[Rfam]
RNA sequence: AAAUUUCAUCGUGAUUGGGAUAGAUCAUUGCAAUUGUUUCUGUAGGUGAACCUUAUCAUUUAAAGGAAGGAGAAGUUGUAACAAGGUUUUCGUAGGUGCACCUAUGGAAGGAUCAUUAUCGAUUCCUAAACAUCAAACAACCUACGAACGCGUUUAAAAACAAACUAUCAACAAGUUGGGUUGUUUGGGAAUGCAAUCCCAAUCGGGUGGUAAAUUCUAUCCAAUGCUAAAUAUGGGCAAGAAACCGAUAGCAAACAAGUACCGCAAGGGAAAGAUGAAAAGGACUUUAAAAGAUAAUUAAAUAGUCCUUGAAAUUGUCAAGAGGUAAGCGGAUGGUAAGCGGAUGGUAACCGGUGAUGUACCCCAGUCGGAUGUGGAACGGUGACGAGUCGGUCCGCCAAUCAACUUAGAGCAUGGAUCGAUGCGAAUUGAGACGGUAGCCUAUGCUCAAACCUUUGUUACGCCUGUGGAGAUGUCGUCGUCCAGAUCAUGGCUGGCAGCGUGUGCCUUAUGGCAGGCUUUGACAUCUGCGCACUCUUGGCAUCAGCCUGUGGGCUCCCCAUUCGACCCGUCUUGAAACACGG
Number, nucleotide and partner (000 for none) at each position: 001a000002a000003a000004u000005u000006u000007c000008a000009u000010c000011g000012u000013g000014a000015u000016u000017g000018g000019g000020a000021u000022a000023g000024a000025u000026c000027a000028u000029u000030g227031c226032a225033a000034u000035u000036g000037u068038u067039u066040c065041u064042g000043u062044a061045g060046g059047u058048g057049a056050a000051c000052c000053u000054u000055a000056u049057c048058a047059u046060u045061u044062a043063a000064a041065g040066g039067a038068a037069g000070g000071a000072g169073a168074a166075g165076u164077u163078g000079u162080a000081a000082c000083a000084a153085g000086g151087u150088u000089u148090u147091c146092g145093u144094a143095g142096g141097u140098g114099c000100a113101c000102c111103u110104a000105u000106g000107g000108a000109a000110g103111g102112a000113u100114c098115a000116u000117u121118a000119u000120c000121g117122a000123u132124u000125c000126c000127u000128a000129a000130a000131c000132a123133u000134c000135a000136a000137a000138c000139a000140a097141c096142c095143u094144a093145c092146g091147a090148a089149c000150g087151c086152g000153u084154u000155u000156a000157a000158a000159a000160a000161c000162a079163a077164a076165c075166u074167a000168u073169c072170a000171a000172c000173a000174a000175g000176u000177u000178g199179g198180g197181u196182u195183g194184u193185u000186u000187g000188g000189g000190a000191a000192u000193g184194c183195a182196a181197u180198c179199c178200c000201a000202a000203u000204c000205g222206g221207g220208u219209g218210g000211u000212a000213a000214a000215u000216u000217c000218u209219a208220u207221c206222c205223a000224a000225u032226g031227c030228u000229a000230a000231a000232u000233a000234u000235g000236g000237g000238c000239a000240a000241g000242a000243a000244a000245c000246c000247g000248a000249u000250a000251g000252c000253a000254a000255a000256c000257a000258a000259g000260u000261a000262c269263c268264g000265c000266a000267a000268g263269g262270g000271a000272a000273a000274g000275a000276u000277g000278a000279a000280a000281a000282g000283g000284a000285c000286u294287u293288u292289a000290a000291a000292a288293g287294a286295u000296a000297a000298u000299u000300a000301a000302a000303u000304a000305g000306u000307c000308c000309u000310u000311g000312a000313a000314a000315u000316u000317g000318u000319c000320a000321a000322g000323a000324g000325g000326u000327a000328a000329g000330c566331g565332g564333a563334u562335g561336g560337u000338a000339a557340g556341c555342g000343g000344a000345u000346g415347g000348u000349a000350a000351c412352c000353g000354g408355u000356g000357a000358u000359g000360u000361a000362c000363c000364c000365c000366a000367g000368u000369c000370g000371g000372a000373u000374g000375u000376g000377g000378a000379a000380c000381g000382g000383u000384g000385a000386c000387g000388a000389g000390u000391c000392g000393g000394u000395c000396c000397g000398c000399c000400a000401a000402u000403c000404a000405a000406c000407u000408u354409a000410g000411a000412g351413c000414a000415u346416g000417g000418a000419u547420c000421g545422a544423u543424g542425c541426g000427a000428a000429u000430u000431g000432a000433g000434a000435c000436g000437g000438u000439a000440g000441c000442c000443u000444a000445u000446g000447c000448u000449c000450a000451a000452a000453c000454c000455u000456u000457u000458g000459u000460u000461a000462c000463g000464c000465c000466u000467g000468u000469g000470g000471a000472g000473a000474u000475g000476u000477c000478g000479u000480c000481g000482u000483c000484c000485a000486g000487a000488u000489c000490a000491u000492g000493g000494c000495u000496g000497g000498c000499a000500g000501c000502g000503u000504g000505u000506g000507c000508c000509u000510u000511a000512u000513g000514g000515c000516a000517g000518g000519c000520u000521u000522u000523g000524a000525c000526a000527u000528c000529u000530g000531c000532g000533c000534a000535c000536u000537c000538u000539u000540g000541g425542c424543a423544u422545c421546a000547g419548c000549c000550u000551g000552u000553g000554g000555g341556c340557u339558c000559c000560c336561c335562a334563u333564u332565c331566g330567a000568c000569c584570c583571g582572u581573c000574u000575u000576g000577a000578a000579a000580c000581a572582c571583g570584g569